[Rfam]
RNA sequence: GUGCCAAAGAACGAAUCGUCGAAUCGGAUGUCUGUGCAUUGUGCGAGAAAUUCGAAUCGACAUUCGACCUGUGGCCAU
Numbered sequence: 001g002u003g004c005c006a007a008a009g010a011a012c013g014a015a016u017c018g019u020c021g022a023a024u025c026g027g028a029u030g031u032c033u034g035u036g037c038a039u040u041g042u043g044c045g046a047g048a049a050a051u052u053c054g055a056a057u058c059g060a061c062a063u064u065c066g067a068c069c070u071g072u073g074g075c076c077a078u
Stems, first nucleotide, its partner, number of pairs: 003075004008070002012066005018061005024055006031048003